[Rfam]
RNA sequence: AUAAAGUGGAGUCCAGUCACACUAUAAAAACGGGGCGCAAUCCGAAAAGCCUUAUGAGUAGGAAAACC
Numbered sequence: 001a002u003a004a005a006g007u008g009g010a011g012u013c014c015a016g017u018c019a020c021a022c023u024a025u026a027a028a029a030a031c032g033g034g035g036c037g038c039a040a041u042c043c044g045a046a047a048a049g050c051c052u053u054a055u056g057a058g059u060a061g062g063a064a065a066a067c068c
Base pairs, nucleotide, nucleotide: 006022007021008020034051035050036049041062042061
RNA: DUF805 RNA
Organism: Flavobacterium album